This 301-nucleotide RNA sequence from Yersinia enterocolitica belongs to the Rfam family "ryfA RNA".
[Rfam]
RNA sequence: CUGGGCCUUUUCGCCGCCCUAAGCAAGCGGGCAUCGGUUUAAGGAAAGGAGUUCCAACGGCCGUAAACACAGGCACACUCUCGUGCUUGUAUUCACGGCAGUGUCGCCGAUGGUGCUGGCGUGAAGCGGUCUAAGCAUGGACCGCACAAUGAAACGAUACUUUUGUAUUGUGCUCGUUGUAUUUGGUGCGUUGUUAACAUCCUGGAAUGGGGGUUGGAGUAUUUUCAACAACUCAAUCACGGUAAUCAUCAACACAUCAGGCAAGUAAAAUAGGUAGCCGUCCUUCGGGGCGGCUUUCCUU
Numbered sequence: 001c002u003g004g005g006c007c008u009u010u011u012c013g014c015c016g017c018c019c020u021a022a023g024c025a026a027g028c029g030g031g032c033a034u035c036g037g038u039u040u041a042a043g044g045a046a047a048g049g050a051g052u053u054c055c056a057a058c059g060g061c062c063g064u065a066a067a068c069a070c071a072g073g074c075a076c077a078c079u080c081u082c083g084u085g086c087u088u089g090u091a092u093u094c095a096c097g098g099c100a101g102u103g104u105c106g107c108c109g110a111u112g113g114u115g116c117u118g119g120c121g122u123g124a125a126g127c128g129g130u131c132u133a134a135g136c137a138u139g140g141a142c143c144g145c146a147c148a149a150u151g152a153a154a155c156g157a158u159a160c161u162u163u164u165g166u167a168u169u170g171u172g173c174u175c176g177u178u179g180u181a182u183u184u185g186g187u188g189c190g191u192u193g194u195u196a197a198c199a200u201c202c203u204g205g206a207a208u209g210g211g212g213g214u215u216g217g218a219g220u221a222u223u224u225u226c227a228a229c230a231a232c233u234c235a236a237u238c239a240c241g242g243u244a245a246u247c248a249u250c251a252a253c254a255c256a257u258c259a260g261g262c263a264a265g266u267a268a269a270a271u272a273g274g275u276a277g278c279c280g281u282c283c284u285u286c287g288g289g290g291c292g293g294c295u296u297u298c299c300u301u
Stems, first nucleotide, its partner, number of pairs: 007048006014030004031038002060187003070089007092125006099118002102115005126145007146180007154171007188266002191264005210226004242253002273299002276295008
Source information:
The family's RNA type in Rfam is small RNA. About the family: This family consists of a number of bacterial RNA genes of 305 bases in length. The ryfA RNA gene is present in E. coli, Shigella flexneri and Salmonella species where it is found between the ydaN and dbpA genes. The function of this RNA is unknown.